[Rfam]
RNA sequence: GUUGGAGUUACGCGGAUUGUAGUUGAUGAAAGCAUAGCCUCGGGAUUGGUCGAUGGCAUGGAACAACGGGUUCCAGUCGAAAAGUUUCAGCAUCGCUGGCGGCAGGGUGUUGGCCACGAACAUCUUGCCCGAAGCAAUCAUGUUGGCGCGUUG
Numbered sequence: 001g002u003u004g005g006a007g008u009u010a011c012g013c014g015g016a017u018u019g020u021a022g023u024u025g026a027u028g029a030a031a032g033c034a035u036a037g038c039c040u041c042g043g044g045a046u047u048g049g050u051c052g053a054u055g056g057c058a059u060g061g062a063a064c065a066a067c068g069g070g071u072u073c074c075a076g077u078c079g080a081a082a083a084g085u086u087u088c089a090g091c092a093u094c095g096c097u098g099g100c101g102g103c104a105g106g107g108u109g110u111u112g113g114c115c116a117c118g119a120a121c122a123u124c125u126u127g128c129c130c131g132a133a134g135c136a137a138u139c140a141u142g143u144u145g146g147c148g149c150g151u152u153g
Stems, first nucleotide, its partner, number of pairs: 003034002008030002013025003037057003041052003064153005071081003087146007100131003103127006110119003
The record is a 153-nucleotide RNA from Primorskyibacter flagellatus, which matches "Ruegeria cis2 sRNA" in Rfam. The literature on the family includes a 2016 paper in Front Microbiol by Rivers et al., "Experimental Identification of Small Non-Coding RNAs in the Model Marine Bacterium Ruegeria pomeroyi DSS-3". Rfam classes the family as a small RNA. It scores 89 bits against the family's covariance model.